Annotation: A member of the RNA family "ALIL pseudoknot" from Acidipropionibacterium virtanenii, 135 nucleotides long. For this family Rfam cites "Apical loop-internal loop RNA pseudoknots: a new type of stimulator of -1 translational frameshifting in bacteria" (Mazauric et al., J Biol Chem, 2008). The base pairs follow the family's consensus structure, which is taken from published work. The family's RNA type in Rfam is cis-regulatory element.
RNA sequence: GGCUUUCUUCGCGGCGGAGCUCGACCGCCCCUCCCGAUGAGCGAACGCGUCCGGUUCGUCGCGGAGCAUCGCGACGAGCACGGGGUCGAGCCGAUCUGCCGGGCGUUGGAAGGAACGCCCGCCCAGGUCGCCCCG
Numbered sequence: 001g002g003c004u005u006u007c008u009u010c011g012c013g014g015c016g017g018a019g020c021u022c023g024a025c026c027g028c029c030c031c032u033c034c035c036g037a038u039g040a041g042c043g044a045a046c047g048c049g050u051c052c053g054g055u056u057c058g059u060c061g062c063g064g065a066g067c068a069u070c071g072c073g074a075c076g077a078g079c080a081c082g083g084g085g086u087c088g089a090g091c092c093g094a095u096c097u098g099c100c101g102g103g104c105g106u107u108g109g110a111a112g113g114a115a116c117g118c119c120c121g122c123c124c125a126g127g128u129c130g131c132c133c134c135g
Base pairs, nucleotide, nucleotide: 013029014028015027016026017025081135082134083133084132085131092130093129095127096126097125098124

Its family is annotated with positive regulation of translational frameshifting in the Gene Ontology.
The source organism's lineage runs through Bacteria, Bacillati, Actinomycetes, Propionibacteriales and Acidipropionibacterium.